[Rfam]
Nucleotides: 230
Stems, first nucleotide, its partner, number of pairs: 005087013020042004026036003046053002056068004090228002093225001097218006106194011117182001119151004126143006155179003159176005196206003
Number, partner (000 for none) and nucleotide at each position: 001000g002000a003000g004000u005087g006086a007085c008084g009083a010082u011081g012080g013079c014078g015077u016076g017075c018000g019000a020042g021041g022040u023039u024000a025000a026036g027035g028034c029000g030000g031000g032000a033000a034028g035027c036026c037000g038000g039023a040022g041021c042020c043000g044000a045000a046053g047052c048000g049000a050000a051000a052047g053046c054000g055000a056068g057067u058066c059065u060000g061000a062000a063000g064000a065059g066058g067057g068056c069000g070000c071000a072000g073000g074000a075017g076016u077015a078014c079013g080012u081011c082010g083009u084008c085007g086006u087005c088000g089000a090228c091227c092000c093225g094000a095000a096000a097218c098217c099216g100215g101214g102213u103000g104000a105000u106194c107193u108192a109191c110190c111189c112188a113187u114186g115185u116184c117182c118000a119151g120150g121149g122148u123000g124000a125000a126143g127142u128141u129140g130139a131138g132000g133000u134000a135000a136000c137000a138131c139130u140129c141128a142127a143126u144000g145000g146000a147000g148122g149121c150120c151119c152000g153000a154000a155179c156178c157177c158000a159176c160175u161174g162173g163172u164000g165000u166000u167000g168000a169000a170000a171000a172163a173162c174161c175160a176159g177157g178156g179155g180000a181000u182117g183000a184116g185115g186114u187113g188112u189111g190110g191109g192108u193107a194106g195000g196206g197205g198204u199000g200000a201000a202000a203000u204198g205197c206196c207000a208000a209000u210000c211000g212000a213102a214101c215100c216099c217098g218097g219000a220000g221000a222000u223000a224000g225093c226000u227091g228090g229000u230000u
The family of this 230-nucleotide part of an RNA from Melghirimyces profundicolus is "Bacterial large subunit ribosomal RNA". It scores 2935 bits against the family's covariance model. The organism belongs to Melghirimyces, within Bacteria. The base pairs follow the family's consensus structure, which is taken from published work.